[Rfam]
RNA sequence: UGUUAGCAGAUGCUCUGACUUCAUUGCACUACUGUUUGACAACAUUUAGCAGUGCAAUAGUAUUGUCAAAGCAACUGACAACAGC
Numbered sequence: 001u002g003u004u005a006g007c008a009g010a011u012g013c014u015c016u017g018a019c020u021u022c023a024u025u026g027c028a029c030u031a032c033u034g035u036u037u038g039a040c041a042a043c044a045u046u047u048a049g050c051a052g053u054g055c056a057a058u059a060g061u062a063u064u065g066u067c068a069a070a071g072c073a074a075c076u077g078a079c080a081a082c083a084g085c
Stems, first nucleotide, its partner, number of pairs: 002082003007077003011073004016068004023058008034043001

Source information: This 85-nucleotide RNA sequence from Cynoglossus semilaevis belongs to the Rfam family "mir-301 microRNA precursor family". The family has 17 seed sequences and 1,415 matches in Rfam 15.1. Lineage of the source: Eukaryota > Gnathostomata > Teleostei > Cynoglossinae > Cynoglossus. The match comes from Rfam's covariance-model search (90 bits).